This 169-nucleotide RNA from Blautia sp. An249 belongs to the Rfam family "Clostridiales-1 RNA". It scores 93 bits against the family's covariance model.
RNA sequence: UGAAAGCCCCGGACUGCGGCUGUACGGCUGGCAGGCUAGCCUGCACAGACGUACAGACAUAGGACGGGCAAGAAGGUACGAGCACGGGGAAUGCCGAAAGGCAGGCCGAAAAGUGCGAGUACCGACUGCGGAUGGAGAAAGUGCGAAGCACGGAGCCAUCCGGCUUUCA
Numbered sequence: 001u002g003a004a005a006g007c008c009c010c011g012g013a014c015u016g017c018g019g020c021u022g023u024a025c026g027g028c029u030g031g032c033a034g035g036c037u038a039g040c041c042u043g044c045a046c047a048g049a050c051g052u053a054c055a056g057a058c059a060u061a062g063g064a065c066g067g068g069c070a071a072g073a074a075g076g077u078a079c080g081a082g083c084a085c086g087g088g089g090a091a092u093g094c095c096g097a098a099a100g101g102c103a104g105g106c107c108g109a110a111a112a113g114u115g116c117g118a119g120u121a122c123c124g125a126c127u128g129c130g131g132a133u134g135g136a137g138a139a140a141g142u143g144c145g146a147a148g149c150a151c152g153g154a155g156c157c158a159u160c161c162g163g164c165u166u167u168c169a
Stems, first nucleotide, its partner, number of pairs: 001169007008068004015061002018058001020056007028048003031044005072126001075123005082116004089106001092103004130161006141151004